[Rfam]
RNA sequence: GGAGGCGCUGUAAACAUCCUUGACUGGAAGCUAGGUUUAGGGGAACAUAAGCUUUCAGUCGGAUGUUUGCAGCGUCUGG
Numbered sequence: 001g002g003a004g005g006c007g008c009u010g011u012a013a014a015c016a017u018c019c020u021u022g023a024c025u026g027g028a029a030g031c032u033a034g035g036u037u038u039a040g041g042g043g044a045a046c047a048u049a050a051g052c053u054u055u056c057a058g059u060c061g062g063a064u065g066u067u068u069g070c071a072g073c074g075u076c077u078g079g
Stems, first nucleotide, its partner, number of pairs: 003077004008072012023059010
Shown here is a 79-nucleotide sequence from Esox lucius, a member of the family "mir-30 microRNA precursor family". This family consists of the mammalian microRNA (miRNA) precursor mir-30a. Animal miRNAs are transcribed as ~70nt precursors and subsequently processed by the Dicer enzyme to give a ~22nt product. In this case the mature sequence comes from both the 3' (miR-30) and 5' (mir-97-6) arms of the precursor. The extents of the hairpin precursors are not generally known and are estimated based on hairpin prediction. The products are thought to have regulatory roles through complementarity to mRNA. The involvement of Dicer in miRNA processing suggests a relationship with the phenomenon of RNA interference. miRNAs are numbered based on the sequence of the mature RNA. The family has 175 seed sequences and 3,879 matches in Rfam 15.1.